The family of this 130-nucleotide RNA sequence from Peribacillus psychrosaccharolyticus is "FMN riboswitch aptamer (RFN element)".
[Rfam]
RNA sequence: UUUGUUCUUCGGGGUAGGGUGGAAUUCCCGACCGGCGGUGAUGAAGUAAUUCUAAGCCCGCGAGCCUUAAUUGGCAGGAUUUGGUGAGAAUCCAAAGCCGACAGUACAGUCUGGAUGGGAGAAGAACAUA
Numbered sequence: 001u002u003u004g005u006u007c008u009u010c011g012g013g014g015u016a017g018g019g020u021g022g023a024a025u026u027c028c029c030g031a032c033c034g035g036c037g038g039u040g041a042u043g044a045a046g047u048a049a050u051u052c053u054a055a056g057c058c059c060g061c062g063a064g065c066c067u068u069a070a071u072u073g074g075c076a077g078g079a080u081u082u083g084g085u086g087a088g089a090a091u092c093c094a095a096a097g098c099c100g101a102c103a104g105u106a107c108a109g110u111c112u113g114g115a116u117g118g119g120a121g122a123a124g125a126a127c128a129u130a
Stems, first nucleotide, its partner, number of pairs: 003128008017029003031110002033100002035061004056098002066074001080096005102113003